[Rfam]
RNA sequence: AUAACAUCUUGCACUGGCUACUUAGUGAUAUGCGGCCCCUAGGCUUCCUCCUUUGGAUCCUAGUUAUUUUGGGCCUGGUCUUAUACACAACGGUAGUCCAGUGGUAAUUUCAGUAUAAGAAGGAAAUCACCAUAUUGCAGAUCCGAGGUGAACGCUAUGUUUUAACUAUCUAACACGGAGUUGGAGUGAUUUAAAGAUCGCUUUGACGAGCCAACAAUGGAAGAGCCAACACGUGAUUUAGCUACGCAUAGUUACUAACUUAAGACAGUUCUGCUUUGCUAUGGAUACAC
Numbered sequence: 001a002u003a004a005c006a007u008c009u010u011g012c013a014c015u016g017g018c019u020a021c022u023u024a025g026u027g028a029u030a031u032g033c034g035g036c037c038c039c040u041a042g043g044c045u046u047c048c049u050c051c052u053u054u055g056g057a058u059c060c061u062a063g064u065u066a067u068u069u070u071g072g073g074c075c076u077g078g079u080c081u082u083a084u085a086c087a088c089a090a091c092g093g094u095a096g097u098c099c100a101g102u103g104g105u106a107a108u109u110u111c112a113g114u115a116u117a118a119g120a121a122g123g124a125a126a127u128c129a130c131c132a133u134a135u136u137g138c139a140g141a142u143c144c145g146a147g148g149u150g151a152a153c154g155c156u157a158u159g160u161u162u163u164a165a166c167u168a169u170c171u172a173a174c175a176c177g178g179a180g181u182u183g184g185a186g187u188g189a190u191u192u193a194a195a196g197a198u199c200g201c202u203u204u205g206a207c208g209a210g211c212c213a214a215c216a217a218u219g220g221a222a223g224a225g226c227c228a229a230c231a232c233g234u235g236a237u238u239u240a241g242c243u244a245c246g247c248a249u250a251g252u253u254a255c256u257a258a259c260u261u262a263a264g265a266c267a268g269u270u271c272u273g274c275u276u277u278g279c280u281a282u283g284g285a286u287a288c289a290c
Stems, first nucleotide, its partner, number of pairs: 081096004101133005107127005137274005147260003154252005166241003174235004180230005202210002211220002
Source information:
The family of this 290-nucleotide RNA from Alphacoronavirus ricketti is "Alphacoronavirus 3'UTR". For this family Rfam cites "RNA structure analysis of alphacoronavirus terminal genome regions" (Madhugiri et al., Virus Res, 2014). It is annotated as a cis-regulatory element. The pairing is the family consensus, mapped onto this sequence. From the family's description: The 3' UTR of alphacoronaviruses consists of two small hairpins (PK-SL2) which can form an alternate conformation (PK-SL1) where the loop region of the second hairpin interacts with the stem of the first hairpin. PK-SL2 has been confirmed in HCoV-229E and HCoV-NL63 by in vitro structure probing experiments. Downstream of this pseudoknot lies the hypervariable region (HVR), which is supported by many covarying basepairs in alphacoronaviruses. Further, a conserved octanucleotide sequence is present in the HVR. Its family is annotated with viral RNA genome replication in the Gene Ontology.